[Rfam]
RNA sequence: UGGAAAUCCAGAGUGGGUGAGGCCUGUCUGACCAUUUCUAGGCGACCCACUCUUGGUUUCCA
Numbered sequence: 001u002g003g004a005a006a007u008c009c010a011g012a013g014u015g016g017g018u019g020a021g022g023c024c025u026g027u028c029u030g031a032c033c034a035u036u037u038c039u040a041g042g043c044g045a046c047c048c049a050c051u052c053u054u055g056g057u058u059u060c061c062a
Base pairs, nucleotide, nucleotide: 001062003060004059005058006057007056008055010053011052015048016047017046018045022043023042024041025040
A member of the RNA family "mir-551 microRNA precursor family" from Equus caballus, 62 nucleotides long. The sequence is in the family's curated seed alignment. Gene Ontology terms of the family: RISC complex and miRNA-mediated post-transcriptional gene silencing. NCBI's taxonomy places the organism under Eukaryota, Opisthokonta, Chordata, Tetrapoda, Equus.